[Rfam]
RNA sequence: CCCUUAUCAAGAGAGGUGGAGGGAAGGGCCCUAUGAAACCCGGCAACCGGCCAGAGAGCGCGGUGCCAAUUCCUGCAGGUUUAUCCUGAAAGAUGAGGA
Numbered sequence: 001c002c003c004u005u006a007u008c009a010a011g012a013g014a015g016g017u018g019g020a021g022g023g024a025a026g027g028g029c030c031c032u033a034u035g036a037a038a039c040c041c042g043g044c045a046a047c048c049g050g051c052c053a054g055a056g057a058g059c060g061c062g063g064u065g066c067c068a069a070u071u072c073c074u075g076c077a078g079g080u081u082u083a084u085c086c087u088g089a090a091a092g093a094u095g096a097g098g099a
Stems, first nucleotide, its partner, number of pairs: 002098007013041001015040003021031003026074003042067004047063002049059001052056001071091001076088004